[Rfam]
RNA sequence: UGCAGCCGGGUAAGUCUUACACGACCAGCUCCCAUCCAACCUCCCCAGGGCCGGAAGGCAGCAAGGACACGAUGGUCGUAGCGGUGCGAUGUAAUCAGCUUACCCUUUU
Numbered sequence: 001u002g003c004a005g006c007c008g009g010g011u012a013a014g015u016c017u018u019a020c021a022c023g024a025c026c027a028g029c030u031c032c033c034a035u036c037c038a039a040c041c042u043c044c045c046c047a048g049g050g051c052c053g054g055a056a057g058g059c060a061g062c063a064a065g066g067a068c069a070c071g072a073u074g075g076u077c078g079u080a081g082c083g084g085u086g087c088g089a090u091g092u093a094a095u096c097a098g099c100u101u102a103c104c105c106u107u108u109u
Base pairs, nucleotide, nucleotide: 008105009104010103011102012101013100014099015098017094018093019092020091021090022088023087024085025084

Rfam assigns this 109-nucleotide RNA sequence from Alistipes sp. CAG:831 to the family "Bacteroidales small SRP".
Clan: SRP clan.
The match comes from Rfam's covariance-model search (96 bits).
The organism belongs to Alistipes, within Bacteria.
The base pairs follow the family's consensus structure, which is taken from published work.
It is annotated as a non-coding RNA gene.